RNA sequence: UGAGAAAAUGAUGUUGAAGGAACUCGGCAAAUUGACCUCGUAACUUCGGGAGAAGAGGUACCUGCCAAAGGGCAACCUUUGACAGGUGGCACAAAAGAGGGGGGAGCGACUGUUUAUCUCAAACACAGGACUCUGCAAAGGUGAAAACCGACGUAUAGGGUCUGACGCCUGCCCGGUGCUGGAAGGUUAAGAGGAGGUGUGCAAGCAUCGAAUUGAAGCCCCAGUGAACGGCGGCCGUAACUAUAACGGUCCUAAGGUAGCGAAAUUCCUUGUCGGGUAAGUUCCGACCUGCACGAAUGGCGUAACGAUUUCCCCGCUGUCUCCAACAUCAACUCA
Numbered sequence: 001u002g003a004g005a006a007a008a009u010g011a012u013g014u015u016g017a018a019g020g021a022a023c024u025c026g027g028c029a030a031a032u033u034g035a036c037c038u039c040g041u042a043a044c045u046u047c048g049g050g051a052g053a054a055g056a057g058g059u060a061c062c063u064g065c066c067a068a069a070g071g072g073c074a075a076c077c078u079u080u081g082a083c084a085g086g087u088g089g090c091a092c093a094a095a096a097g098a099g100g101g102g103g104g105a106g107c108g109a110c111u112g113u114u115u116a117u118c119u120c121a122a123a124c125a126c127a128g129g130a131c132u133c134u135g136c137a138a139a140g141g142u143g144a145a146a147a148c149c150g151a152c153g154u155a156u157a158g159g160g161u162c163u164g165a166c167g168c169c170u171g172c173c174c175g176g177u178g179c180u181g182g183a184a185g186g187u188u189a190a191g192a193g194g195a196g197g198u199g200u201g202c203a204a205g206c207a208u209c210g211a212a213u214u215g216a217a218g219c220c221c222c223a224g225u226g227a228a229c230g231g232c233g234g235c236c237g238u239a240a241c242u243a244u245a246a247c248g249g250u251c252c253u254a255a256g257g258u259a260g261c262g263a264a265a266u267u268c269c270u271u272g273u274c275g276g277g278u279a280a281g282u283u284c285c286g287a288c289c290u291g292c293a294c295g296a297a298u299g300g301c302g303u304a305a306c307g308a309u310u311u312c313c314c315c316g317c318u319g320u321c322u323c324c325a326a327c328a329u330c331a332a333c334u335c336a
Stems, first nucleotide, its partner, number of pairs: 001336004009331008018322003035059005044049001060087005066081006088092001100315007107307002111125003128163008136153001140149003166302004171232003176229002178225005185220003191214002196209005233251006252256001262289001272288006
RNA: Bacterial large subunit ribosomal RNA, nucleotides 1537 to 1872